MIR396 microRNA precursor family: a 153-nucleotide sequence from Cucumis melo.
The organism belongs to Cucumis, within Eukaryota.
The base pairs follow the family's consensus structure, which was predicted with WAR.
A search with the family's covariance model found it, with a score of 91 bits.
RNA sequence: GUUUGUAUUCUUCCACAGCUUUCUUGAACUGCAUCCCUUCCUGAACUCAAUUCGCUCUUAAUUUCCCCUUUCUCGAUCUCUCGAUCGAUCUCAAAGCGUUUUUUGUUCAUCGAUUUUGUUGCGGUUCAAUAAAGCUGUGGGAAGAUACAGUCA
Numbered sequence: 001g002u003u004u005g006u007a008u009u010c011u012u013c014c015a016c017a018g019c020u021u022u023c024u025u026g027a028a029c030u031g032c033a034u035c036c037c038u039u040c041c042u043g044a045a046c047u048c049a050a051u052u053c054g055c056u057c058u059u060a061a062u063u064u065c066c067c068c069u070u071u072c073u074c075g076a077u078c079u080c081u082c083g084a085u086c087g088a089u090c091u092c093a094a095a096g097c098g099u100u101u102u103u104u105g106u107u108c109a110u111c112g113a114u115u116u117u118g119u120u121g122c123g124g125u126u127c128a129a130u131a132a133a134g135c136u137g138u139g140g141g142a143a144g145a146u147a148c149a150g151u152c153a
Stems, first nucleotide, its partner, number of pairs: 003150005013140003017136006024129004029124005
Dot-bracket structure: ..(((((.....(((.((((((.((((.(((((......................................................................................))))).)))).)))))).))).....)))))...